This 78-nucleotide sequence from Acetivibrio clariflavus belongs to the Rfam family "pemK RNA". The organism belongs to Acetivibrio clariflavus, within Bacteria. The sequence is in the family's curated seed alignment.
[Rfam]
RNA sequence: AUAAUGAUACUUGCGCAUAGUCGAGGUUAAGUCCCAGAGUGCGCCCCGGUCGCUGACGGGGAGGUGUGAUUCCUAUGA
Numbered sequence: 001a002u003a004a005u006g007a008u009a010c011u012u013g014c015g016c017a018u019a020g021u022c023g024a025g026g027u028u029a030a031g032u033c034c035c036a037g038a039g040u041g042c043g044c045c046c047c048g049g050u051c052g053c054u055g056a057c058g059g060g061g062a063g064g065u066g067u068g069a070u071u072c073c074u075a076u077g078a
Stems, first nucleotide, its partner, number of pairs: 012075001013044006045061003049057003062074003